[Rfam]
RNA sequence: CCUCCGAUCAAAAGGAGUGAUGCCAUGAAGCCCCGUACCCUGCUGACAAUUGCCGCCCUUGUGGCUGCGGCUGUCGCCAUCCCGGCGGCGCUGGCCAGCAAUCCGCCGCCGCCGGCGGCGGACAAGUCCACGGCAGAUUCUGCCGAAAAACCCACUGAUGAAGCCAAGGCCCGUGCUGCCCGCCGUGCUGCUGCCGCUGCUGCGCACCGUGCGCGUGGCGAGCAGGCGCCGCCGCAGCGCGAGGAAGAAGAGGAAGCCAAGCGCAAGCCGUAAGGCUUGCAGCUGCCGUUUGUGCGCCCCGGUCUGGAUCGGGGCGCACUUUUUUGUUUUCGCAGCCA
Numbered sequence: 001c002c003u004c005c006g007a008u009c010a011a012a013a014g015g016a017g018u019g020a021u022g023c024c025a026u027g028a029a030g031c032c033c034c035g036u037a038c039c040c041u042g043c044u045g046a047c048a049a050u051u052g053c054c055g056c057c058c059u060u061g062u063g064g065c066u067g068c069g070g071c072u073g074u075c076g077c078c079a080u081c082c083c084g085g086c087g088g089c090g091c092u093g094g095c096c097a098g099c100a101a102u103c104c105g106c107c108g109c110c111g112c113c114g115g116c117g118g119c120g121g122a123c124a125a126g127u128c129c130a131c132g133g134c135a136g137a138u139u140c141u142g143c144c145g146a147a148a149a150a151c152c153c154a155c156u157g158a159u160g161a162a163g164c165c166a167a168g169g170c171c172c173g174u175g176c177u178g179c180c181c182g183c184c185g186u187g188c189u190g191c192u193g194c195c196g197c198u199g200c201u202g203c204g205c206a207c208c209g210u211g212c213g214c215g216u217g218g219c220g221a222g223c224a225g226g227c228g229c230c231g232c233c234g235c236a237g238c239g240c241g242a243g244g245a246a247g248a249a250g251a252g253g254a255a256g257c258c259a260a261g262c263g264c265a266a267g268c269c270g271u272a273a274g275g276c277u278u279g280c281a282g283c284u285g286c287c288g289u290u291u292g293u294g295c296g297c298c299c300c301g302g303u304c305u306g307g308a309u310c311g312g313g314g315c316g317c318a319c320u321u322u323u324u325u326g327u328u329u330u331c332g333c334a335g336c337c338a
Base pairs, nucleotide, nucleotide: 023250030181035179036178041175042174050070051069052068053067055065056064075120076119077118078117090099091098092097105116106115107114108113132171133170134169184241185240186239187238188237193219194218195217196216197215225233226232267336268335270333275280292319293318294317295316296315297314298313299312300311301310302309303308